RNA sequence: CCCGAGACUAGAGUCACAUCCCGACAGUUCUUGUCCUGGUGUGCUACAGUCCUCAGAGAGAAUCUGCUGGUCUCGAUUCACUGGCGAGGGCAGUCCGUGCCCCCGCGAGUGCCCAGAUCAGAAACAUGC
Numbered sequence: 001c002c003c004g005a006g007a008c009u010a011g012a013g014u015c016a017c018a019u020c021c022c023g024a025c026a027g028u029u030c031u032u033g034u035c036c037u038g039g040u041g042u043g044c045u046a047c048a049g050u051c052c053u054c055a056g057a058g059a060g061a062a063u064c065u066g067c068u069g070g071u072c073u074c075g076a077u078u079c080a081c082u083g084g085c086g087a088g089g090g091c092a093g094u095c096c097g098u099g100c101c102c103c104c105g106c107g108a109g110u111g112c113c114c115a116g117a118u119c120a121g122a123a124a125c126a127u128g129c
Stems, first nucleotide, its partner, number of pairs: 002056001004054003007050003012045002015043006023035004067121007075113001079111004084106001086104001088102004